[Rfam]
RNA: Group II catalytic intron D1-D4-3
RNA sequence: UUACUGGCAACAGUAGGGUCUGAAGGAAGUAGCAGGGGAAAUGUGGAACAUAACGAAAGUAAAUCGAAGAUGGCUUACAAAGUGGGUAACUCUGAAAAAUAUGGGAAAGCCUUAAAGUUAGAUAACUUUAUAAGUUAAGACGGAUGCAUUCGUAUUUAGGCAGGCAAA
Numbered sequence: 001u002u003a004c005u006g007g008c009a010a011c012a013g014u015a016g017g018g019u020c021u022g023a024a025g026g027a028a029g030u031a032g033c034a035g036g037g038g039a040a041a042u043g044u045g046g047a048a049c050a051u052a053a054c055g056a057a058a059g060u061a062a063a064u065c066g067a068a069g070a071u072g073g074c075u076u077a078c079a080a081a082g083u084g085g086g087u088a089a090c091u092c093u094g095a096a097a098a099a100u101a102u103g104g105g106a107a108a109g110c111c112u113u114a115a116a117g118u119u120a121g122a123u124a125a126c127u128u129u130a131u132a133a134g135u136u137a138a139g140a141c142g143g144a145u146g147c148a149u150u151c152g153u154a155u156u157u158a159g160g161c162a163g164g165c166a167a168a
Base pairs, nucleotide, nucleotide: 001016002015003014004013005012006011030167032165033164036161041155042154043153044152045151046150049146050145051144064143065142066141073135074134075133077131079129080128081127082126083125084112085111086110087109090105091104092103